This 54-nucleotide RNA sequence from Mola mola belongs to the Rfam family "Editing element of GABA-3 exon 9". On this family, see Ohlson et al., RNA 2007: "Editing modifies the GABA(A) receptor subunit alpha3". It scores 58 bits against the family's covariance model. The family has 52 seed sequences and 4,208 matches in Rfam 15.1. NCBI's taxonomy places the organism under Eukaryota, Eumetazoa, Euteleostomi, Percomorphaceae, Mola. The family's consensus secondary structure is taken from published work.
[Rfam]
RNA sequence: AAAUUAUCUUAUGCCACCGCGAUGGACUGGUUCAUCGCUGUGUGUUUCGCGUUU
Numbered sequence: 001a002a003a004u005u006a007u008c009u010u011a012u013g014c015c016a017c018c019g020c021g022a023u024g025g026a027c028u029g030g031u032u033c034a035u036c037g038c039u040g041u042g043u044g045u046u047u048c049g050c051g052u053u054u
Stems, first nucleotide, its partner, number of pairs: 001054003008049001011046001013045002015042003019038002022035005